[Rfam]
RNA sequence: UUUUUCCUUCGGGGCAGGGUGAGAUUCCCGACCGGCGGUGAUGAAGCAAAAGCUUCUUAGUCCGUGACCCGAGUGCUAGUGCUUGUUGUAUUCGGUGGAUCUGGUGUAAUUCCAGAACCGACAGUAUAGUCUGGAUGGGAGAAGGAAUUG
Numbered sequence: 001u002u003u004u005u006c007c008u009u010c011g012g013g014g015c016a017g018g019g020u021g022a023g024a025u026u027c028c029c030g031a032c033c034g035g036c037g038g039u040g041a042u043g044a045a046g047c048a049a050a051a052g053c054u055u056c057u058u059a060g061u062c063c064g065u066g067a068c069c070c071g072a073g074u075g076c077u078a079g080u081g082c083u084u085g086u087u088g089u090a091u092u093c094g095g096u097g098g099a100u101c102u103g104g105u106g107u108a109a110u111u112c113c114a115g116a117a118c119c120g121a122c123a124g125u126a127u128a129g130u131c132u133g134g135a136u137g138g139g140a141g142a143a144g145g146a147a148u149u150g
Stems, first nucleotide, its partner, number of pairs: 004147007017029003031130002033120002035065004060118002069095005100116005122133003
Dot-bracket structure: ...(((((((......(((.......))).[[((((((.....................[[))))...(((((.................)))))....(((((.......)))))]])).(((....]]))).......)))))))...
RNA: FMN riboswitch aptamer (RFN element)